[Rfam]
RNA sequence: UCUCCCUGCCUUUCAGGCAUCCUCUCCCAAGACUUCCAAGGCCCGGUGGUUUUCCGCCGGGCCUUUUUUUCGUCCGAU
Numbered sequence: 001u002c003u004c005c006c007u008g009c010c011u012u013u014c015a016g017g018c019a020u021c022c023u024c025u026c027c028c029a030a031g032a033c034u035u036c037c038a039a040g041g042c043c044c045g046g047u048g049g050u051u052u053u054c055c056g057c058c059g060g061g062c063c064u065u066u067u068u069u070u071c072g073u074c075c076g077a078u
Base pairs, nucleotide, nucleotide: 008018009017010016011015040063041062042061043060044059045058046057047056048055
The family of this 78-nucleotide RNA from Tsuneonella suprasediminis is "Makes More Granules Regulator RNA (mmgR)". Its family is annotated with response to nitrogen compound, DNA-templated transcription, termination and protein binding in the Gene Ontology. Taxonomically the source falls in Tsuneonella (Bacteria, Pseudomonadati, Alphaproteobacteria, Sphingomonadales). A search with the family's covariance model found it, with a score of 59 bits. From the family's description: SuhB later renamed mmgR (makes more granules regulator) was a putative non-coding RNA found multiple times in the Agrobacterium tumefaciens genome and related alpha-proteobacteria. Other non-coding RNAs uncovered in the same analysis include: speF, ybhL, metA, and serC.Several studies inSinorhizobium meliloti showed that suhB element is indeed a non-coding RNA:firstly it was detected on Northern blot and called Sm8RNA, secondly in an RNAseq study referred to as SmelC689.The mutant phenotype's (strain lacking the small RNA) cytoplasm contains higher content of polyhydroxybutyrate (PBH)storage granules than wild type strain. For this family Rfam cites "Evidence for a second class of S-adenosylmethionine riboswitches and other regulatory RNA motifs in alpha-proteobacteria" (Corbino et al., Genome Biol, 2005). Its Rfam clan is "suhB sRNA clan".